[Rfam]
RNA sequence: AAACGUUCAACUUGCGCAUGCAAGCCGCAGAUCGAUCUAAGCCAUGGAACGGGGACUUAGG
Numbered sequence: 001a002a003a004c005g006u007u008c009a010a011c012u013u014g015c016g017c018a019u020g021c022a023a024g025c026c027g028c029a030g031a032u033c034g035a036u037c038u039a040a041g042c043c044a045u046g047g048a049a050c051g052g053g054g055a056c057u058u059a060g061g
Base pairs, nucleotide, nucleotide: 004051005050006049007048008047011024012023013022014021036061037060038059039058040057041056042054043053
Description
A member of the RNA family "Glutamine-II riboswitch aptamer" from Prochlorococcus marinus, 61 nucleotides long. Pairs were carried over by alignment from the consensus structure, which is taken from published work. On this family, see Huang et al., Nucleic Acids Res 2019: "Structure and ligand binding of the glutamine-II riboswitch".